[Rfam]
RNA sequence: CCGCCCGUCGCUACUACCGAUUGGGCGUUUUAGUGAGCGCCUCGGAUUGGACCCGGAAAUGGUUGGCAACAACCGUACCGGUGUGCCGAAAAGACGCGCAAACUUGAACGCCUAGAGGAAGUAAAAGUCGUAACAAGGUUUCCGUAGGUGAACCUGCGGAAGGAUCAUUA
Numbered sequence: 001c002c003g004c005c006c007g008u009c010g011c012u013a014c015u016a017c018c019g020a021u022u023g024g025g026c027g028u029u030u031u032a033g034u035g036a037g038c039g040c041c042u043c044g045g046a047u048u049g050g051a052c053c054c055g056g057a058a059a060u061g062g063u064u065g066g067c068a069a070c071a072a073c074c075g076u077a078c079c080g081g082u083g084u085g086c087c088g089a090a091a092a093g094a095c096g097c098g099c100a101a102a103c104u105u106g107a108a109c110g111c112c113u114a115g116a117g118g119a120a121g122u123a124a125a126a127g128u129c130g131u132a133a134c135a136a137g138g139u140u141u142c143c144g145u146a147g148g149u150g151a152a153c154c155u156g157c158g159g160a161a162g163g164a165u166c167a168u169u170a
Stems, first nucleotide, its partner, number of pairs: 001137001003134001006130002009127001012123004017118002021114001023113008032104003037099004042094002047089004052081001054080003058076001061074003139162010